[Rfam]
RNA sequence: AAAAAGGGUGCUUGCUACUUUAUAGCACAUGAGGCUAACCGCCUCGUGGGGUAUGGCAAUCAAGACAUACCCAGCACAUAAUUUUUGGCCACGUGGAGCUGUUUCUUGGCAUUGUUCCAGAGGCGCUCCC
Numbered sequence: 001a002a003a004a005a006g007g008g009u010g011c012u013u014g015c016u017a018c019u020u021u022a023u024a025g026c027a028c029a030u031g032a033g034g035c036u037a038a039c040c041g042c043c044u045c046g047u048g049g050g051g052u053a054u055g056g057c058a059a060u061c062a063a064g065a066c067a068u069a070c071c072c073a074g075c076a077c078a079u080a081a082u083u084u085u086u087g088g089c090c091a092c093g094u095g096g097a098g099c100u101g102u103u104u105c106u107u108g109g110c111a112u113u114g115u116u117c118c119a120g121a122g123g124c125g126c127u128c129c130c
Stems, first nucleotide, its partner, number of pairs: 008077005013027005028048008049072007096128004101124005107119003110114001
RNA: U11 spliceosomal RNA
Organism: Tribolium castaneum